Record summary:
The record is a 122-nucleotide sequence, which matches "drum RNA" in Rfam. Firmicutes, Bacteroidetes (1 example), Proteobacteria (2 examples), Spirochaetes (2 examples). It is annotated as a small RNA.
RNA sequence: AAGUGGUGAUGCCAAGAAGCGUGUCAGGAUGCGGGACUUGGAGGAGCUUUAUGUAGGGUUUUGCUAUGGAAACCUCAACCUGACUUAUGUACGUUCGUGUGCAGACAUAAAAAUAGCAAAAU
Numbered sequence: 001a002a003g004u005g006g007u008g009a010u011g012c013c014a015a016g017a018a019g020c021g022u023g024u025c026a027g028g029a030u031g032c033g034g035g036a037c038u039u040g041g042a043g044g045a046g047c048u049u050u051a052u053g054u055a056g057g058g059u060u061u062u063g064c065u066a067u068g069g070a071a072a073c074c075u076c077a078a079c080c081u082g083a084c085u086u087a088u089g090u091a092c093g094u095u096c097g098u099g100u101g102c103a104g105a106c107a108u109a110a111a112a113a114u115a116g117c118a119a120a121a122u
Stems, first nucleotide, its partner, number of pairs: 001049004012041005020033003024083004063117003088103006